Rfam assigns this 138-nucleotide sequence from Paenibacillus rhizosphaerae to the family "c-di-AMP riboswitch aptamer (ydaO/yuaA leader)". This family represents a conserved RNA structure found upstream of the ydaO and yuaA genes in Bacillus subtilis and related genes in other bacteria. Gene Ontology terms of the family: cyclic-di-AMP binding and regulation of gene expression.
[Rfam]
RNA sequence: AAUCAUCACGAGCCGAAUUCCCGGGCACCAGGAAGCGGGGGAUCCAAUUUUGGGUGAAUUGAUCUCGCUACAGAGGGAUCAUAGGGGACCUUCUACCGAAUCCUUAAGCUAACCUCGCAGGCAUUGGAAGGGGUUUAU
Number, nucleotide and partner (000 for none) at each position: 001a000002a000003u000004c000005a000006u000007c000008a000009c000010g000011a000012g122013c121014c120015g000016a000017a000018u034019u033020c032021c000022c000023g000024g000025g000026c000027a000028c000029c000030a000031g000032g020033a019034a018035g118036c117037g116038g115039g114040g113041g000042a000043u000044c000045c000046a050047a000048u000049u000050u046051u000052g103053g102054g101055u000056g000057a000058a000059u000060u081061g080062a079063u078064c077065u076066c075067g000068c000069u000070a000071c000072a000073g000074a000075g066076g065077g064078a063079u062080c061081a060082u000083a000084g097085g096086g000087g000088a000089c000090c000091u000092u000093c000094u000095a000096c085097c084098g000099a000100a000101u054102c053103c052104u000105u000106a000107a000108g000109c000110u000111a000112a000113c040114c039115u038116c037117g036118c035119a000120g014121g013122c012123a000124u000125u000126g000127g000128a000129a000130g000131g000132g000133g000134u000135u000136u000137a000138u000